[Rfam]
RNA sequence: AGGUAGCAUUUCUGAGAAGAUGCCUACCCGAUACAAUCUUCCUAGAGUAAAAUUGUCACUUCCUGCUUGCGGUAUUGUUAGCAAAUCCUGCAAGUCUCAAAUGACAAGAUAGCUGC
Dot-bracket structure: .((.(((((((......)))))).).)).........................(.(........((((((((.(((.......))).))))))))...........).).......

Small nucleolar RNA snoR104: a 116-nucleotide RNA from Leersia perrieri. Gene Ontology terms of the family: RNA processing and nucleolus. Rfam 15.1 lists 612 matches to the family in 228 species. The family's consensus secondary structure was predicted with WAR.